[Rfam]
RNA sequence: GGCACGUUAGAUGCUUCACAAUCGAUACGGUAGGCCAACGGCGGUCUCCACCCUAAGACAAAGGCGUCGC
Numbered sequence: 001g002g003c004a005c006g007u008u009a010g011a012u013g014c015u016u017c018a019c020a021a022u023c024g025a026u027a028c029g030g031u032a033g034g035c036c037a038a039c040g041g042c043g044g045u046c047u048c049c050a051c052c053c054u055a056a057g058a059c060a061a062a063g064g065c066g067u068c069g070c
Stems, first nucleotide, its partner, number of pairs: 029049002032047005
The family of this 70-nucleotide sequence is "narK RNA".